[Rfam]
RNA sequence: UACCUUCUUUCUUGGCGCUCCUAUCGUAUCCAGGUAGAAGUGUAUGUAAAAGAAGGGAGAUAAAGCCCAUCAGGGUAUUCGGAUCUCCUUCGGUGCUGUUCUAAUAUCUAUCGAAUAGCGUCAUCCUCUGGGUUCGAGACAGUC
Dot-bracket structure: ..((((((((....((((..((((.........))))..)))).....)))))))).........(((....)))..(((((((((.....((..((((((...........))))))..)).......)))))))))......
The family of this 144-nucleotide RNA from Cylicocyclus nassatus is "Nematode snoRNA ceN88". Pairs were carried over by alignment from the consensus structure, which was predicted with RNAalifold. Taxonomically the source falls in Cylicocyclus (Eukaryota, Ecdysozoa, Chromadorea, Rhabditina).